Rfam assigns this 102-nucleotide RNA sequence from Oceanobacillus halophilus to the family "Purine riboswitch aptamer".

RNA sequence: AUCUUAAUUGAAUACUAUUUUCAUAUAAUCGCGGGGAUAUGGCCUGCAAGUUUCUACCGGUUUACCGUAAAUGAGCCGACUAUGAAAAGCGGAUAAUGACUA
Numbered sequence: 001a002u003c004u005u006a007a008u009u010g011a012a013u014a015c016u017a018u019u020u021u022c023a024u025a026u027a028a029u030c031g032c033g034g035g036g037a038u039a040u041g042g043c044c045u046g047c048a049a050g051u052u053u054c055u056a057c058c059g060g061u062u063u064a065c066c067g068u069a070a071a072u073g074a075g076c077c078g079a080c081u082a083u084g085a086a087a088a089g090c091g092g093a094u095a096a097u098g099a100c101u102a
Stems, first nucleotide, its partner, number of pairs: 018088008029049001031047005058078007
It scores 86 bits against the family's covariance model. Rfam's curators write: Riboswitches are metabolite binding domains within certain messenger RNAs that serve as precision sensors for their corresponding targets. Allosteric rearrangement of mRNA structure is mediated by ligand binding, and this results in modulation of gene expression. A class of riboswitches that selectively recognises guanine and becomes saturated at concentrations as low as 5 nM. In Bacillus subtilis, this mRNA motif is located on at least five separate transcriptional units that together encode 17 genes that are mostly involved in purine transport and purine nucleotide biosynthesis. It has also been shown that some members of this family are specific for adenine instead. Pairs were carried over by alignment from the consensus structure, which is taken from published work.